Shown here is a 95-nucleotide RNA from Canis lupus, a member of the family "mir-8799 microRNA precursor family".
Its Rfam clan is "mir-8791 microRNA precursor clan".
Rfam links the family to the GO terms miRNA-mediated post-transcriptional gene silencing and RISC complex.
Pairs were carried over by alignment from the consensus structure, which was predicted with RNAalifold.

Nucleotides: 095
Base pairs, nucleotide, nucleotide: 001095003093004092005091006090010087012084014082017079018078020076021075022074024072025071027069028066029065032064033061034060035059036058037057038056042054044053045052046051
Number, partner (000 for none) and nucleotide at each position: 001095a002000a003093g004092g005091g006090g007000a008000g009000c010087g011000c012084c013000a014082g015000a016000u017079c018078c019000u020076g021075g022074g023000c024072u025071g026000u027069g028066u029065c030000c031000c032064c033061c034060g035059g036058u037057a038056c039000c040000u041000u042054g043000g044053g045052c046051u047000c048000u049000g050000g051046g052045g053044c054042c055000u056038g057037u058036g059035c060034u061033g062000c063000u064032g065029g066028a067000a068000u069027c070000c071025u072024g073000c074022u075021c076020c077000u078018g079017g080000g081000g082014c083000c084012g085000c086000a087010u088000a089000g090006c091005c092004c093003c094000c095001u
A search with the family's covariance model found it, with a score of 61 bits.